A member of the RNA family "MIR7502 microRNA precursor family" from Gossypium barbadense, 144 nucleotides long.
RNA sequence: UAUUAAAAAAUUUAUUUAUUUUUAUUGUUAAAAAUUGACCGAUUGAUAGAAUAAUUAAAUAGUUACACAUAGUGUGUUAUGUGCACGUCAUGCUGACAUACAUGAAUCGAUUUUUAAUAGUAAAAAUGGAUAAAGUUUUUAACA
Numbered sequence: 001u002a003u004u005a006a007a008a009a010a011u012u013u014a015u016u017u018a019u020u021u022u023u024a025u026u027g028u029u030a031a032a033a034a035u036u037g038a039c040c041g042a043u044u045g046a047u048a049g050a051a052u053a054a055u056u057a058a059a060u061a062g063u064u065a066c067a068c069a070u071a072g073u074g075u076g077u078u079a080u081g082u083g084c085a086c087g088u089c090a091u092g093c094u095g096a097c098a099u100a101c102a103u104g105a106a107u108c109g110a111u112u113u114u115u116a117a118u119a120g121u122a123a124a125a126a127u128g129g130a131u132a133a134a135g136u137u138u139u140u141a142a143c144a
Stems, first nucleotide, its partner, number of pairs: 003142007011134006018127009028117006
Pairs were carried over by alignment from the consensus structure, which was predicted with RNAalifold.